[Rfam]
RNA sequence: UGUUCUCGCUUCAACAGUGCUUGAACGGAACUGG
Dot-bracket structure: (.((((.(.((((((...).))))))))))...)
A member of the RNA family "Iron response element I" from Callorhinchus milii, 34 nucleotides long. The family has 62 seed sequences and 6,829 matches in Rfam 15.1. The family's RNA type in Rfam is cis-regulatory element. For this family Rfam cites "Identification of the iron-responsive element for the translational regulation of human ferritin mRNA" (Hentze et al., Science, 1987).